Shown here is a 166-nucleotide RNA sequence from Gordonia sp. NB41Y, a member of the family "c-di-AMP riboswitch aptamer (ydaO/yuaA leader)".
Pairs were carried over by alignment from the consensus structure.
Lineage of the source: Bacteria > Actinomycetota > Actinomycetes > Mycobacteriales > Gordonia.
Rfam 15.1 lists 7,607 matches to the family in 2,262 species.
RNA sequence: UGACGAGAAACAUCUGGGAACGAGGACGGGGGACCCACCUUCCCAUCCGGGAACCGGACGUCGACCGACGUCCUUGGGGUUAAGUCCGCGGCCACACCGGCCAUAGCGACCGAGCACCUCUCGCUCGAACCCGACAGCUGACUUCGCAGGCGCGUGGAGAGAGGGA
Numbered sequence: 001u002g003a004c005g006a007g008a009a010a011c012a013u014c015u016g017g018g019a020a021c022g023a024g025g026a027c028g029g030g031g032g033a034c035c036c037a038c039c040u041u042c043c044c045a046u047c048c049g050g051g052a053a054c055c056g057g058a059c060g061u062c063g064a065c066c067g068a069c070g071u072c073c074u075u076g077g078g079g080u081u082a083a084g085u086c087c088g089c090g091g092c093c094a095c096a097c098c099g100g101c102c103a104u105a106g107c108g109a110c111c112g113a114g115c116a117c118c119u120c121u122c123g124c125u126c127g128a129a130c131c132c133g134a135c136a137g138c139u140g141a142c143u144u145c146g147c148a149g150g151c152g153c154g155u156g157g158a159g160a161g162a163g164g165g166a
Stems, first nucleotide, its partner, number of pairs: 001023001027146005036076002077132003085109001087108003112126004
Dot-bracket structure: (.....................)...(((((....((.....................................))(((.....(.(((................))))..((((.......))))...))).........)))))....................